[Rfam]
RNA sequence: AAAAUUGGAGCAAGUUCUACACAAUCAGCUCCCUAUAAAAUCCUCUAGGGUGGGAACACAGCAAAGGUAAUUAGGUAGUAGCGAUGUGAUGUAGAUUCGCUUGCUCCUUU
Numbered sequence: 001a002a003a004a005u006u007g008g009a010g011c012a013a014g015u016u017c018u019a020c021a022c023a024a025u026c027a028g029c030u031c032c033c034u035a036u037a038a039a040a041u042c043c044u045c046u047a048g049g050g051u052g053g054g055a056a057c058a059c060a061g062c063a064a065a066g067g068u069a070a071u072u073a074g075g076u077a078g079u080a081g082c083g084a085u086g087u088g089a090u091g092u093a094g095a096u097u098c099g100c101u102u103g104c105u106c107c108u109u110u
Stems, first nucleotide, its partner, number of pairs: 008106008017094005022088002024085002
A member of the RNA family "Bacteroidales small SRP" from Blattabacterium sp., 110 nucleotides long. Its family is annotated with signal recognition particle, plasma membrane targeting and SRP-dependent cotranslational protein targeting to membrane, signal sequence recognition in the Gene Ontology. The organism belongs to Blattabacterium, within Bacteria. It is annotated as a non-coding RNA gene.